[Rfam]
Source information:
The record is an 84-nucleotide RNA from Lucilia cuprina, which matches "mir-2 microRNA precursor family" in Rfam. A search with the family's covariance model found it, with a score of 62 bits. The literature on the family includes a 2001 paper in Science by Lee and Ambros, "An extensive class of small RNAs in Caenorhabditis elegans". The organism belongs to Lucilia, within Eukaryota.
Nucleotides: 084
Stems, first nucleotide, its partner, number of pairs: 005078009014068006021061002025059003
Number, partner (000 for none) and nucleotide at each position: 001000u002000c003000a004000u005078u006077c007076u008075u009074c010073a011072a012071a013070g014068u015067g016066g017065c018064u019063g020000c021061g022060a023000a024000a025059u026058g027057u028000u029000u030000u031000c032000u033000c034000u035000u036000u037000u038000a039000a040000a041000u042000u043000u044000a045000a046000u047000u048000u049000u050000a051000a052000u053000a054000u055000u056000c057027a058026u059025a060022u061021c062000a063019c064018a065017g066016c067015c068014a069000g070013c071012u072011u073010u074009g075008a076007g077006g078005a079000g080000c081000g082000u083000c084000a